RNA sequence: AAAAAGAGCUUCUGUUAUGUGUGGCACAUGUGGGGCAGCUCAAUUGCUCUUCCUGCGGAAUCAACAUCAAGAGGUUUGGGAAGCAUAAGUUUUGGUACUUGGGCAGCUGGUGCUCAUUGAUCCCAGCAAGUCUAC
Numbered sequence: 001a002a003a004a005a006g007a008g009c010u011u012c013u014g015u016u017a018u019g020u021g022u023g024g025c026a027c028a029u030g031u032g033g034g035g036c037a038g039c040u041c042a043a044u045u046g047c048u049c050u051u052c053c054u055g056c057g058g059a060a061u062c063a064a065c066a067u068c069a070a071g072a073g074g075u076u077u078g079g080g081a082a083g084c085a086u087a088a089g090u091u092u093u094g095g096u097a098c099u100u101g102g103g104c105a106g107c108u109g110g111u112g113c114u115c116a117u118u119g120a121u122c123c124c125a126g127c128a129a130g131u132c133u134a135c
Base pairs, nucleotide, nucleotide: 008084009083010082011081012080013026014025015024016023017022027055028054030052032050033049034048035047036046037045038044056079058077059076060075061074062073101133102132103131104130106127107126108125109124110123112122114120115119
The record is a 135-nucleotide RNA from Equus caballus, which matches "U11 spliceosomal RNA" in Rfam. Pairs were carried over by alignment from the consensus structure, which is taken from published work. A search with the family's covariance model found it, with a score of 82 bits. Taxonomically the source falls in Equus (Eukaryota, Amniota, Mammalia, Laurasiatheria).